[Rfam]
This 452-nucleotide part of an RNA from an uncultured Nitrososphaerota archaeon belongs to the Rfam family "Archaeal large subunit ribosomal RNA".
The family's consensus secondary structure is taken from published work.
Its Rfam clan is "LSU clan".
The literature on the family includes a 2001 paper in Science by Yusupov et al., "Crystal structure of the ribosome at 5.5 A resolution".

RNA sequence: CCCGCCGAAGCUGAUCCCAGUCAGGCCCCGGCAGAUGCUGCCGGCGCGGUAGAGCACCGAUGGGGUGGCAAGGGACCGAAAGGUCCCACCACCCUUUCGAACUCCGAACGUGCCGGCGCAGAAGAAGCCGGGAGACGGGUUUGUGGGGGUAAGCCCCACAACCGAGAGGGGAACAACCCAGACCGGCGUUAAGGCCCCUAAGUGCAGGCUAAGUGCCAAACCGAAGGGCGUCUCCCCGCGUAGACAGCAGGGGGGUAGGCUUAGAAGCAGCCAUCCCCUAAGGAGUGCGUAACAGCUCACCUGCCGAGCGGGGAGGCCCCGAAAAUGGACGGGGCUAAGCCUGCCGCCGAUACGCCGGGCCACUCCAGGUUUCUGGAGUGGGCGGUAGGCGGGCGUAGAGGCCGCGUAGAAGCGGGGCCGUGAGGUCCCGUGGAGCGGCCUCUAGUGCAGAU
Numbered sequence: 001c002c003c004g005c006c007g008a009a010g011c012u013g014a015u016c017c018c019a020g021u022c023a024g025g026c027c028c029c030g031g032c033a034g035a036u037g038c039u040g041c042c043g044g045c046g047c048g049g050u051a052g053a054g055c056a057c058c059g060a061u062g063g064g065g066u067g068g069c070a071a072g073g074g075a076c077c078g079a080a081a082g083g084u085c086c087c088a089c090c091a092c093c094c095u096u097u098c099g100a101a102c103u104c105c106g107a108a109c110g111u112g113c114c115g116g117c118g119c120a121g122a123a124g125a126a127g128c129c130g131g132g133a134g135a136c137g138g139g140u141u142u143g144u145g146g147g148g149g150u151a152a153g154c155c156c157c158a159c160a161a162c163c164g165a166g167a168g169g170g171g172a173a174c175a176a177c178c179c180a181g182a183c184c185g186g187c188g189u190u191a192a193g194g195c196c197c198c199u200a201a202g203u204g205c206a207g208g209c210u211a212a213g214u215g216c217c218a219a220a221c222c223g224a225a226g227g228g229c230g231u232c233u234c235c236c237c238g239c240g241u242a243g244a245c246a247g248c249a250g251g252g253g254g255g256u257a258g259g260c261u262u263a264g265a266a267g268c269a270g271c272c273a274u275c276c277c278c279u280a281a282g283g284a285g286u287g288c289g290u291a292a293c294a295g296c297u298c299a300c301c302u303g304c305c306g307a308g309c310g311g312g313g314a315g316g317c318c319c320c321g322a323a324a325a326u327g328g329a330c331g332g333g334g335c336u337a338a339g340c341c342u343g344c345c346g347c348c349g350a351u352a353c354g355c356c357g358g359g360c361c362a363c364u365c366c367a368g369g370u371u372u373c374u375g376g377a378g379u380g381g382g383c384g385g386u387a388g389g390c391g392g393g394c395g396u397a398g399a400g401g402c403c404g405c406g407u408a409g410a411a412g413c414g415g416g417g418c419c420g421u422g423a424g425g426u427c428c429c430g431u432g433g434a435g436c437g438g439c440c441u442c443u444a445g446u447g448c449a450g451a452u
Base pairs, nucleotide, nucleotide: 001393002392003391004390005389006388011024012023013022014021015020026134027132028131029130030129031128032127036120037119038118040117041116042115043114044113045112046111047110052105053103054102059098060097062095063094064093065092066091067090068089072087073086074085075084076083077082138163139162141161142160143159144158145157146156147155168179169178170177183358184357185356186355187354188353189352193348194347195346202345204344205343206342207341208340209339226320227319228318230317231316232315233314234313235312236311237310238309239308247304248303249302250301251300253277254276255275258272259271260270278282283298287296288295359383360382361380362379363378364377365376394447396444397443398442399441400440401439402438403437404436405435412431413430414429415428416427417426418425419424